A member of the RNA family "RNA of unknown function RUF4" from Drosophila albomicans, 270 nucleotides long. Taxonomically the source falls in Drosophila (Eukaryota, Protostomia, Allotriocarida, Endopterygota). It scores 60 bits against the family's covariance model.
RNA sequence: ACAUGUAUGACAUACAUGACAUGUAUGACAUACAUAACGUGUAUGACAUACAUAACGUGUAUGACAUACAUGACGUGUAUGACAUACACGACGUGUAUUACAUGUCAUGUAUGUCAUACAUGUCAUACACAUGUAUGUCAUACAUGUCAUGUAUGUCAUACACGUCAUGUAUGUAAUACACGUCAUGUAUGUAAUACACGUCAUACACAUGUAUGUCAUACAUGUCACACACGUCAUACAUGUCAUACACGUCAUGUAUGUCAUACAUGU
Numbered sequence: 001a002c003a004u005g006u007a008u009g010a011c012a013u014a015c016a017u018g019a020c021a022u023g024u025a026u027g028a029c030a031u032a033c034a035u036a037a038c039g040u041g042u043a044u045g046a047c048a049u050a051c052a053u054a055a056c057g058u059g060u061a062u063g064a065c066a067u068a069c070a071u072g073a074c075g076u077g078u079a080u081g082a083c084a085u086a087c088a089c090g091a092c093g094u095g096u097a098u099u100a101c102a103u104g105u106c107a108u109g110u111a112u113g114u115c116a117u118a119c120a121u122g123u124c125a126u127a128c129a130c131a132u133g134u135a136u137g138u139c140a141u142a143c144a145u146g147u148c149a150u151g152u153a154u155g156u157c158a159u160a161c162a163c164g165u166c167a168u169g170u171a172u173g174u175a176a177u178a179c180a181c182g183u184c185a186u187g188u189a190u191g192u193a194a195u196a197c198a199c200g201u202c203a204u205a206c207a208c209a210u211g212u213a214u215g216u217c218a219u220a221c222a223u224g225u226c227a228c229a230c231a232c233g234u235c236a237u238a239c240a241u242g243u244c245a246u247a248c249a250c251g252u253c254a255u256g257u258a259u260g261u262c263a264u265a266c267a268u269g270u
Stems, first nucleotide, its partner, number of pairs: 003121005010114016031082001033081004037076004044066002047063007085097004127201002131190007138180001142170005148164001150162005191199002208224005233266002235260008244251001
The family's RNA type in Rfam is small RNA.